[Rfam]
RNA sequence: UGGUGCUAGCUGCCUGUAACAGCAACUCCAUGUGGAACGUGUGAGUAUGACCUCCAGUGGAGCUGCUGUUACUUGCAGAGAGUCA
Numbered sequence: 001u002g003g004u005g006c007u008a009g010c011u012g013c014c015u016g017u018a019a020c021a022g023c024a025a026c027u028c029c030a031u032g033u034g035g036a037a038c039g040u041g042u043g044a045g046u047a048u049g050a051c052c053u054c055c056a057g058u059g060g061a062g063c064u065g066c067u068g069u070u071a072c073u074u075g076c077a078g079a080g081a082g083u084c085a
Stems, first nucleotide, its partner, number of pairs: 010078003016072008026062006033056003
The record is an 85-nucleotide RNA from Ameiurus melas, which matches "mir-194 microRNA precursor family" in Rfam. The source organism's lineage runs through Eukaryota, Metazoa, Actinopterygii, Ictaluridae and Ameiurus. Gene Ontology terms of the family: miRNA-mediated post-transcriptional gene silencing and RISC complex. On this family, see Lagos-Quintana et al., RNA 2003: "New microRNAs from mouse and human".